[Rfam]
RNA sequence: UGGCUGUAGCUAAAUCAAAUAUCUUUGAGAAGUUAACUGGCCGGUUGUUGUGAAAUCUCUUUGAUUUCUCUCUGUCAACUAAUCUGCUUACCGAACUUCUCACACUU
Numbered sequence: 001u002g003g004c005u006g007u008a009g010c011u012a013a014a015u016c017a018a019a020u021a022u023c024u025u026u027g028a029g030a031a032g033u034u035a036a037c038u039g040g041c042c043g044g045u046u047g048u049u050g051u052g053a054a055a056u057c058u059c060u061u062u063g064a065u066u067u068c069u070c071u072c073u074g075u076c077a078a079c080u081a082a083u084c085u086g087c088u089u090a091c092c093g094a095a096c097u098u099c100u101c102a103c104a105c106u107u
Stems, first nucleotide, its partner, number of pairs: 027101008039088003043084004047079004
A member of the RNA family "Small nucleolar RNA snoR109" from Castanea mollissima, 107 nucleotides long. Gene Ontology terms of the family: RNA processing and nucleolus. NCBI's taxonomy places the organism under Eukaryota, Viridiplantae, Euphyllophyta, Gunneridae, Castanea. The literature on the family includes a 2002 paper in Curr Biol by Marker et al., "Experimental RNomics: identification of 140 candidates for small non-messenger RNAs in the plant Arabidopsis thaliana". It scores 90 bits against the family's covariance model. The family's RNA type in Rfam is H/ACA-box small nucleolar RNA.